[Rfam]
RNA sequence: CAUCGCGAUGCUUCUCCAUCAAGGAGCAUCGUGAUGAGGAUACUGUCGAAGCGUCAGCUGAAGGAGCUGGUUCUGUACUCGCCGCAACAUGUCGCGCGGCUGGAAAAGGCCGGGAAGUUCCCCAAGCGGGUCCAGAUCGGUCCGAACAGAGUGGGAUGGGUUGAGGACGAAGUGCUUGACUGGCUUCAGGAACGGCUGAACCGCCGGGACGAACCUGUCCGACACUCCUGAAUGCAGGAGCGGGACGGCCGGGCGUGCACAGCCC
Numbered sequence: 001c002a003u004c005g006c007g008a009u010g011c012u013u014c015u016c017c018a019u020c021a022a023g024g025a026g027c028a029u030c031g032u033g034a035u036g037a038g039g040a041u042a043c044u045g046u047c048g049a050a051g052c053g054u055c056a057g058c059u060g061a062a063g064g065a066g067c068u069g070g071u072u073c074u075g076u077a078c079u080c081g082c083c084g085c086a087a088c089a090u091g092u093c094g095c096g097c098g099g100c101u102g103g104a105a106a107a108g109g110c111c112g113g114g115a116a117g118u119u120c121c122c123c124a125a126g127c128g129g130g131u132c133c134a135g136a137u138c139g140g141u142c143c144g145a146a147c148a149g150a151g152u153g154g155g156a157u158g159g160g161u162u163g164a165g166g167a168c169g170a171a172g173u174g175c176u177u178g179a180c181u182g183g184c185u186u187c188a189g190g191a192a193c194g195g196c197u198g199a200a201c202c203g204c205c206g207g208g209a210c211g212a213a214c215c216u217g218u219c220c221g222a223c224a225c226u227c228c229u230g231a232a233u234g235c236a237g238g239a240g241c242g243g244g245a246c247g248g249c250c251g252g253g254c255g256u257g258c259a260c261a262g263c264c265c
Base pairs, nucleotide, nucleotide: 001036002035003034004033005032006031007030008029009028010027012026013025014024016023054199055198056197057196058195059194063187064186065185066184067183068182069181070180071179072178076174077173078172079171080169081168082166083165085163086162087161088160090158091157092156093155095153096152097151100149101148102147108142109141110140112137120130121129122128201251203249204248205247206246219244220243225240226239227238228237229236230235252264253263254262

A member of the RNA family "Ruegeria trans44 sRNA" from Minwuia thermotolerans, 265 nucleotides long. The family's consensus secondary structure was predicted with RNAfold. For this family Rfam cites "Experimental Identification of Small Non-Coding RNAs in the Model Marine Bacterium Ruegeria pomeroyi DSS-3" (Rivers et al., Front Microbiol, 2016).